[Rfam]
RNA sequence: CAAAGACGGUGCUUACCUUAGCAACAUCUUUGAAAGUAAGCAUUCUAAGACGUUGUUGAAGUAAGCACUGUCUAUGAAUGCUUACUUUCAAAGACGUUGCUGAAGUAAGCAUCGUCUAU
Numbered sequence: 001c002a003a004a005g006a007c008g009g010u011g012c013u014u015a016c017c018u019u020a021g022c023a024a025c026a027u028c029u030u031u032g033a034a035a036g037u038a039a040g041c042a043u044u045c046u047a048a049g050a051c052g053u054u055g056u057u058g059a060a061g062u063a064a065g066c067a068c069u070g071u072c073u074a075u076g077a078a079u080g081c082u083u084a085c086u087u088u089c090a091a092a093g094a095c096g097u098u099g100c101u102g103a104a105g106u107a108a109g110c111a112u113c114g115u116c117u118a119u
Stems, first nucleotide, its partner, number of pairs: 004117004009112008018103003022099004027094013041080005048073005054067004
A member of the RNA family "MIR4374 microRNA precursor family" from Glycine soja, 119 nucleotides long. Taxonomically the source falls in Glycine subgen. Soja (Eukaryota, fabids, Fabales, Phaseoleae). Gene Ontology terms of the family: miRNA-mediated post-transcriptional gene silencing and RISC complex. Pairs were carried over by alignment from the consensus structure, which was predicted with RNAalifold.